[Rfam]
RNA: Na+ riboswitch aptamer (DUF1646)
RNA sequence: GGUUGGACGAAUAUGGAUUCGUUUUCAAGUCACUUUAGUUUCCAGGGGGGGAAGCU
Numbered sequence: 001g002g003u004u005g006g007a008c009g010a011a012u013a014u015g016g017a018u019u020c021g022u023u024u025u026c027a028a029g030u031c032a033c034u035u036u037a038g039u040u041u042c043c044a045g046g047g048g049g050g051g052a053a054g055c056u
Base pairs, nucleotide, nucleotide: 003028004027005026006023007022008021009020010019011018037056038055039054040053041052042051043050